This 77-nucleotide sequence from Alligator sinensis belongs to the Rfam family "Mammalian CPEB3 ribozyme". The source organism's lineage runs through Eukaryota, Eumetazoa, Chordata, Crocodylia and Alligator.

RNA sequence: GGUGGCAAGUCCAAGGCCAUAGUAUAAGUGCUCGUGGUGCAGCCCUUUCAGAUUUCAAUGAAUCUGUGAAUUCUCUA
Numbered sequence: 001g002g003u004g005g006c007a008a009g010u011c012c013a014a015g016g017c018c019a020u021a022g023u024a025u026a027a028g029u030g031c032u033c034g035u036g037g038u039g040c041a042g043c044c045c046u047u048u049c050a051g052a053u054u055u056c057a058a059u060g061a062a063u064c065u066g067u068g069a070a071u072u073c074u075c076u077a
Stems, first nucleotide, its partner, number of pairs: 013046001015044003022076001024074001026072002028040003049066007